[Rfam]
RNA sequence: CGAUUUCAAUGGCAACGAGAGAGAGCACGCAUGUACACAGUCAUUUACCCUUGCAUGAAUGUGGACGAGCGUGCUCUCUCUCGUUGUCAAGCGAAG
Numbered sequence: 001c002g003a004u005u006u007c008a009a010u011g012g013c014a015a016c017g018a019g020a021g022a023g024a025g026c027a028c029g030c031a032u033g034u035a036c037a038c039a040g041u042c043a044u045u046u047a048c049c050c051u052u053g054c055a056u057g058a059a060u061g062u063g064g065a066c067g068a069g070c071g072u073g074c075u076c077u078c079u080c081u082c083g084u085u086g087u088c089a090a091g092c093g094a095a096g
Base pairs, nucleotide, nucleotide: 010089011088012087013086014085016083017082020079021078023076025074026073027072028071029070030069032067033066034065
RNA: MIR535 microRNA precursor family